This 100-nucleotide RNA from Clostridium chauvoei belongs to the Rfam family "SAM riboswitch aptamer (S box leader)". A search with the family's covariance model found it, with a score of 74 bits. The source organism's lineage runs through Bacteria, Eubacteriales, Clostridiaceae, Clostridium and Clostridium chauvoei. The SAM riboswitch is found upstream of a number of genes which code for proteins involved in methionine or cysteine biosynthesis in Gram-positive bacteria.
[Rfam]
RNA sequence: UUCUUAUCCAGAGUGGUGGAGGGACUGGCCCUAUGAAACCCGGCAACCUAUUUUAUUGUUUAUUCAAUAGAAUGUGGUGCUAAUUCCUGAUAGAUAAGGG
Numbered sequence: 001u002u003c004u005u006a007u008c009c010a011g012a013g014u015g016g017u018g019g020a021g022g023g024a025c026u027g028g029c030c031c032u033a034u035g036a037a038a039c040c041c042g043g044c045a046a047c048c049u050a051u052u053u054u055a056u057u058g059u060u061u062a063u064u065c066a067a068u069a070g071a072a073u074g075u076g077g078u079g080c081u082a083a084u085u086c087c088u089g090a091u092a093g094a095u096a097a098g099g100g
Stems, first nucleotide, its partner, number of pairs: 001100008013041001015040003021031003025089001027087002042081004047077002049074009085092001